Description
Shown here is a 434-nucleotide RNA sequence from Methylobacterium oryzihabitans, a member of the family "Bacterial RNase P class A". Its family is annotated with dimeric ribonuclease P complex, tRNA processing and ribonuclease P activity in the Gene Ontology. The source organism's lineage runs through Bacteria, Alphaproteobacteria, Hyphomicrobiales, Methylobacteriaceae and Methylobacterium.
[Rfam]
RNA sequence: UCAGCCGGCCGGGCGGCCGCUCCGGUCCUGUCAGCGGGUUCGCCCGCUGGCGGGCCGGGGAGGAAAGUCCGGGCUCCAUGGAGAUGCGGUGCCGGAUAACGUCCGGCGGGGGCGACCCCAGGGACAGUGCCACAGAGAGCAAACCGCCGUGGAUCGGCGCGAGCCGAUCCACGGUAAGGGUGAAAGGGUGCGGUAAGAGCGCACCGCGGACGCGGCAACGCGGACGGCACGGCAAACCCCACCGGGAGCAAAACCGAAUAGGGGCGACGCGCACGGGUUCGCCCGUGCAGGCCCGAUCUCCAGGCCAGUCGCCCGGGUUGGUUGCUCGAGGCGGCCGGCAACGGCCGUCCCAGAGGAAUGGCCGCCACGUCCGGGGGGAUCCUUGCGGAUUCCUCCGGGCCCUACAGAACCCGGCUUACAGGCCGGCUGAUCCC
Number, nucleotide and partner (000 for none) at each position: 001u430002c429003a428004g427005c426006c425007g424008g423009c422010c421011g419012g366013g365014c364015g363016g362017c361018c360019g000020c060021u059022c058023c057024g056025g055026u054027c053028c052029u000030g000031u000032c000033a000034g000035c000036g000037g000038g000039u000040u000041c000042g000043c000044c000045c000046g000047c000048u000049g000050g000051c000052g028053g027054g026055c025056c024057g023058g022059g021060g020061a000062g000063g000064a000065a417066a416067g415068u000069c414070c413071g412072g411073g410074c248075u247076c246077c245078a000079u000080g000081g000082a000083g299084a000085u000086g000087c244088g243089g242090u241091g240092c106093c105094g104095g103096a102097u000098a000099a000100c000101g000102u096103c095104c094105g093106g092107c121108g119109g118110g117111g116112g000113c000114g000115a000116c111117c110118c109119c108120a000121g107122g239123g238124a000125c000126a000127g237128u236129g233130c232131c231132a000133c000134a000135g000136a000137g000138a000139g000140c000141a000142a000143a000144c179145c178146g175147c174148c173149g172150u171151g170152g169153a168154u167155c166156g165157g164158c163159g000160c000161g000162a000163g158164c157165c156166g155167a154168u153169c152170c151171a150172c149173g148174g147175u146176a000177a000178g145179g144180g000181u000182g000183a000184a000185a000186g000187g205188g204189u203190g202191c201192g200193g000194u000195a000196a000197g000198a000199g000200c192201g191202c190203a189204c188205c187206g228207c226208g225209g000210a000211c222212g221213c220214g219215g000216c000217a000218a000219c214220g213221c212222g211223g000224a000225c208226g207227g000228c206229a000230c000231g131232g130233c129234a000235a000236a128237c127238c123239c122240c091241a090242c089243c088244g087245g077246g076247a075248g074249c000250a000251a000252a323253a322254c321255c320256g000257a000258a000259u000260a000261g000262g314263g313264g312265c311266g310267a309268c000269g000270c000271g000272c000273a000274c000275g000276g000277g000278u000279u000280c000281g000282c000283c000284c000285g000286u000287g000288c000289a000290g000291g305292c304293c303294c000295g301296a000297u000298c000299u083300c000301c295302a000303g293304g292305c291306c000307a000308g000309u267310c266311g265312c264313c263314c262315g000316g000317g000318u000319u000320g255321g254322u253323u252324g000325c000326u000327c000328g000329a000330g349331g348332c347333g346334g345335c344336c343337g342338g000339c000340a000341a000342c337343g336344g335345c334346c333347g332348u331349c330350c000351c000352a000353g000354a000355g000356g000357a000358a000359u000360g018361g017362c016363c015364g014365c013366c012367a000368c000369g000370u000371c000372c000373g000374g000375g000376g000377g000378g000379a000380u000381c000382c000383u000384u000385g000386c000387g000388g000389a000390u000391u000392c000393c000394u000395c000396c000397g000398g000399g000400c000401c000402c000403u000404a000405c000406a000407g000408a000409a000410c073411c072412c071413g070414g069415c067416u066417u065418a000419c011420a000421g010422g009423c008424c007425g006426g005427c004428u003429g002430a001431u000432c000433c000434c000